The family of this 182-nucleotide sequence from Panaeolus cyanescens is "small nucleolar RNA snR35". Clan: SNORA13 clan. NCBI's taxonomy places the organism under Eukaryota, Fungi, Agaricomycetidae, Agaricales, Panaeolus. On this family, see Li et al., J Biol Chem 2005: "Identification and functional analysis of 20 Box H/ACA small nucleolar RNAs (snoRNAs) from Schizosaccharomyces pombe".
RNA sequence: UUCGUGCGGCAACACGGCCAUGUCAUUUCCCCUGUUGCUCAUAAUCGCUCUUUCCAUUUUUUGGACUGUCCAAGCGAUCGUUCGAGUGUCAGGCCGUGUUCUGAAAAAUUUGGACAUCUUAGCACCCUAUAUCUUCUCGCAUUUAUCACCUUGGAGAGGAUGGGUCGGUAGUUCAGACACAC
Dot-bracket structure: .....................(.(((..........((((....((((.........................))))......))))........))).).........((((((............(.((((((((.................))))))))).......))))))......